A member of the RNA family "mir-252 microRNA precursor family" from Megaselia scalaris, 74 nucleotides long.

[Rfam]
RNA sequence: AUUCUUUCCUAAGUACUAGUGCCGCAGGAGAUAUUUAGUUUAAAUCCCUGCUGCUCAAGUGCUUAUCAAGGAGU
Numbered sequence: 001a002u003u004c005u006u007u008c009c010u011a012a013g014u015a016c017u018a019g020u021g022c023c024g025c026a027g028g029a030g031a032u033a034u035u036u037a038g039u040u041u042a043a044a045u046c047c048c049u050g051c052u053g054c055u056c057a058a059g060u061g062c063u064u065a066u067c068a069a070g071g072a073g074u
Base pairs, nucleotide, nucleotide: 001074002073003072004071005070006069007068010065011064012063013062014061015060016059017058019056024051025050026049027048028047030045

Lineage of the source: Eukaryota > Opisthokonta > Altocrustacea > Hexapoda > Megaselia. On this family, see Li et al., BMC Genomics 2009: "Direct sequencing and expression analysis of a large number of miRNAs in Aedes aegypti and a multi-species survey of novel mosquito miRNAs". The family's consensus secondary structure was predicted with RNAalifold. Its Rfam clan is "mir-252 microRNA precursor family". Rfam links the family to the GO terms RISC complex and miRNA-mediated post-transcriptional gene silencing.